SAM riboswitch aptamer (S box leader): a 102-nucleotide RNA from Clostridium sp. N3C. A search with the family's covariance model found it, with a score of 95 bits. The source organism's lineage runs through Bacteria, Bacillati, Bacillota, Clostridiaceae and Clostridium.

RNA sequence: UUCUUAUCAAGAGAGGUGGAGGGAAAGGCCCAAUGAAACCCAGCAACACUAGCAUGAGCUAGAAUGUGCUAAAUCCUGCAGCCUAUGGCUGAAAGAUAAGAA
Dot-bracket structure: ((((((((....(.(((...(((..[[[)))......))))((((.((((((......))))..))))))...(]]].(((((...)))))..)))))))))